[Rfam]
RNA sequence: AACGCGGAAGCCGAAAAGCGCAUAGAGUAGGCA
Numbered sequence: 001a002a003c004g005c006g007g008a009a010g011c012c013g014a015a016a017a018g019c020g021c022a023u024a025g026a027g028u029a030g031g032c033a
Stems, first nucleotide, its partner, number of pairs: 003020003010032003
The family of this 33-nucleotide sequence is "DUF805b RNA". By type it is a cis-regulatory element. It is one of the family's seed sequences. The base pairs follow the family's consensus structure, which is taken from published work. The family is grouped with related families in Rfam's "DUF805 clan".